[Rfam]
RNA sequence: AAGCAUCUCCGAGUCUCGCUACGGAUGGCGGCAAUAGGAGUACCUGCUGGUUGGCACAGCUAUCGACGUUCCUUUUUGACAAGGAAACGGGUGCGUUCACACCUCGACAACGGGUCACGUCGUAAACCACAAUAUCCCAACGGUGGUCGGGAGUCCUCGCGCCUUCGCACGAGAA
Numbered sequence: 001a002a003g004c005a006u007c008u009c010c011g012a013g014u015c016u017c018g019c020u021a022c023g024g025a026u027g028g029c030g031g032c033a034a035u036a037g038g039a040g041u042a043c044c045u046g047c048u049g050g051u052u053g054g055c056a057c058a059g060c061u062a063u064c065g066a067c068g069u070u071c072c073u074u075u076u077u078g079a080c081a082a083g084g085a086a087a088c089g090g091g092u093g094c095g096u097u098c099a100c101a102c103c104u105c106g107a108c109a110a111c112g113g114g115u116c117a118c119g120u121c122g123u124a125a126a127c128c129a130c131a132a133u134a135u136c137c138c139a140a141c142g143g144u145g146g147u148c149g150g151g152a153g154u155c156c157u158c159g160c161g162c163c164u165u166c167g168c169a170c171g172a173g174a175a
Stems, first nucleotide, its partner, number of pairs: 003044001007040004013035002016031006046060004064122006071114003075110002090103004135152004140147002154175001156173004161168002
A member of the RNA family "Sense overlapping transcript RNA 0042 (sot)" from Halorubellus sp. JP-L1, 175 nucleotides long. Rfam 15.1 lists 196 matches to the family in 82 species. Rfam's curators write: It is associated with IS1341-type transposase (tnpB) genes, at the 3'-end in H. salinarum NRC-1. The tetraloop structural motif may be functional. A reference for the family is Gomes-Filho et al. (2015), "Sense overlapping transcripts in IS1341-type transposase genes are functional non-coding RNAs in archaea", RNA Biol. It scores 144 bits against the family's covariance model.